This 85-nucleotide sequence from Paenibacillus sp. PvR098 belongs to the Rfam family "c-di-GMP-I riboswitch aptamer".
The match comes from Rfam's covariance-model search (55 bits).
Lineage of the source: Bacteria > Bacillota > Caryophanales > Paenibacillaceae > Paenibacillus.
GEMM was predicted in a large-scale screen for bacterial structured RNA regulatory elements.
Pairs were carried over by alignment from the consensus structure, which is taken from published work.
RNA sequence: AAUUGAUAAGGGUAAACCUAAUGAAAUUUAGGGACGAAAAGCUAAAGGGGCUAAGAAAACUACUUUAUGCUAGCAAGCUGCCACA
Dot-bracket structure: ............(...(((((......)))))...)...((((....((((....((......))...)))..).))))......
Numbered sequence: 001a002a003u004u005g006a007u008a009a010g011g012g013u014a015a016a017c018c019u020a021a022u023g024a025a026a027u028u029u030a031g032g033g034a035c036g037a038a039a040a041g042c043u044a045a046a047g048g049g050g051c052u053a054a055g056a057a058a059a060c061u062a063c064u065u066u067a068u069g070c071u072a073g074c075a076a077g078c079u080g081c082c083a084c085a
Stems, first nucleotide, its partner, number of pairs: 013036001017032005040079004048074001049071003056065002